[Rfam]
RNA sequence: GCUCGUCACCAGGGGUGCCCCGUACCAGCCGGGGCCGAGAGGGCAAACGCGCCCAACCCGCAGAACCUGAUCUGGUUAGCACCAGCGGAGGGAGCGUGACGGGCGAGAUCA
Numbered sequence: 001g002c003u004c005g006u007c008a009c010c011a012g013g014g015g016u017g018c019c020c021c022g023u024a025c026c027a028g029c030c031g032g033g034g035c036c037g038a039g040a041g042g043g044c045a046a047a048c049g050c051g052c053c054c055a056a057c058c059c060g061c062a063g064a065a066c067c068u069g070a071u072c073u074g075g076u077u078a079g080c081a082c083c084a085g086c087g088g089a090g091g092g093a094g095c096g097u098g099a100c101g102g103g104c105g106a107g108a109u110c111a
Base pairs, nucleotide, nucleotide: 006099007098008097009096012059013058014057017035018034019033020032021031042053043052044051066091067090068089072085073084074083075082
About this RNA
TPP riboswitch aptamer (THI element): a 111-nucleotide RNA from Deinobacterium chartae. A search with the family's covariance model found it, with a score of 59 bits. The base pairs follow the family's consensus structure, which is taken from published work. Gene Ontology term of the family: thiamine pyrophosphate binding. NCBI's taxonomy places the organism under Bacteria, Deinococci, Deinococcales, Deinococcaceae, Deinobacterium.